[Rfam]
RNA sequence: UGACGGAAGGGCACCACAAGGAGUGGAGCCUGUGGCUUAAUUUGACUCAACACGGGAAACUUUACCAGGCCCAGACAGUAGAAUGAUUGACAGAUUGAAAGCUCUUUCUCAAUUUAUUGGUUGGUGGUGCAUGGCCGUUCUUAGUUGGUGGAGUGAUUUGUCUGGUUUAUUCCGAUAACGAACGAGACUCUGGCCUACUAAAUAGGGAGCAGGUUGUUGGGCGCCUGCGGUGUCUUCUUAGAGGGAUAAGCUGCUACCAGCAGCAAGAGAUUGAGCGAUAACAGGUCUGGUAUGCCCUUAGAUGCUCUGGGCCGCACGCGCGCUACAAUGGUAGCGUCAGCGUGCUGAGCAUCUCUGAGAGGAGGUGUCAAUCAUUGAAAUGGUACCGUGGUUGGGAUUGGGGCUUGCAAUUGUUUCCCAUGAACUAGGAAUUCCUAGUAGGCGCAGGUCCUUAGCCUGCAUCGAUUAAGUCCCUGCCCUUUGUACACA
Numbered sequence: 001u002g003a004c005g006g007a008a009g010g011g012c013a014c015c016a017c018a019a020g021g022a023g024u025g026g027a028g029c030c031u032g033u034g035g036c037u038u039a040a041u042u043u044g045a046c047u048c049a050a051c052a053c054g055g056g057a058a059a060c061u062u063u064a065c066c067a068g069g070c071c072c073a074g075a076c077a078g079u080a081g082a083a084u085g086a087u088u089g090a091c092a093g094a095u096u097g098a099a100a101g102c103u104c105u106u107u108c109u110c111a112a113u114u115u116a117u118u119g120g121u122u123g124g125u126g127g128u129g130c131a132u133g134g135c136c137g138u139u140c141u142u143a144g145u146u147g148g149u150g151g152a153g154u155g156a157u158u159u160g161u162c163u164g165g166u167u168u169a170u171u172c173c174g175a176u177a178a179c180g181a182a183c184g185a186g187a188c189u190c191u192g193g194c195c196u197a198c199u200a201a202a203u204a205g206g207g208a209g210c211a212g213g214u215u216g217u218u219g220g221g222c223g224c225c226u227g228c229g230g231u232g233u234c235u236u237c238u239u240a241g242a243g244g245g246a247u248a249a250g251c252u253g254c255u256a257c258c259a260g261c262a263g264c265a266a267g268a269g270a271u272u273g274a275g276c277g278a279u280a281a282c283a284g285g286u287c288u289g290g291u292a293u294g295c296c297c298u299u300a301g302a303u304g305c306u307c308u309g310g311g312c313c314g315c316a317c318g319c320g321c322g323c324u325a326c327a328a329u330g331g332u333a334g335c336g337u338c339a340g341c342g343u344g345c346u347g348a349g350c351a352u353c354u355c356u357g358a359g360a361g362g363a364g365g366u367g368u369c370a371a372u373c374a375u376u377g378a379a380a381u382g383g384u385a386c387c388g389u390g391g392u393u394g395g396g397a398u399u400g401g402g403g404c405u406u407g408c409a410a411u412u413g414u415u416u417c418c419c420a421u422g423a424a425c426u427a428g429g430a431a432u433u434c435c436u437a438g439u440a441g442g443c444g445c446a447g448g449u450c451c452u453u454a455g456c457c458u459g460c461a462u463c464g465a466u467u468a469a470g471u472c473c474c475u476g477c478c479c480u481u482u483g484u485a486c487a488c489a
Base pairs, nucleotide, nucleotide: 001487002486003484004483005482007481008480009479010478011477012476013475016471017470020435021434022433023432024431025326027324028323029322031320032319033318034317035315036314041056042055043054044053065310066309067308068307069306071304076119077118078117079116080115089108090107092105093104094103123298124297126296127295128294129293132292134286135285136284137282138281139280144183145182146181148179149178150159151158152157163174164173165172189274190273192271194244195243196242198241199240200239201238204235205234206233247267250264251263252262253261254260330387331386332385333384335382336381342375343374344373349368350367353364354363355362356361394425399420400419401418402417403416441463442462444460445459446458447457448456
Eukaryotic small subunit ribosomal RNA: a 489-nucleotide part of an RNA from Gnathophausia zoea. Clan: SSU clan. The family has 90 seed sequences and 75,755 matches in Rfam 15.1. Taxonomically the source falls in Gnathophausia (Eukaryota, Metazoa, Panarthropoda, Altocrustacea).